The record is an 87-nucleotide RNA sequence from Caldichromatium japonicum, which matches "t44 RNA" in Rfam.
The family's RNA type in Rfam is small RNA.
The base pairs follow the family's consensus structure, which was predicted with LocARNA.
This family consists of a number of bacterial RNA genes of between 135 and 170 bases in length. The t44 gene has been identified in several species of enteric bacteria but homologs have also been identified in Pseudomonas and Coxiella species. The t44 gene is found between the map and rpsB genes in all species in the full alignment apart from Shigella flexneri. The function of this RNA is unknown.
RNA sequence: UUGUCAUCGGCAUUUAUCCACACACGCACCGUCACAGACGGCGGGGUGCCCACUCGGGUCGCCGCCUGGGGUGCGUGGAGGCUCAAC
Dot-bracket structure: ......................((((((((....(((.(((((....((((....))))))))).))).))))))))..........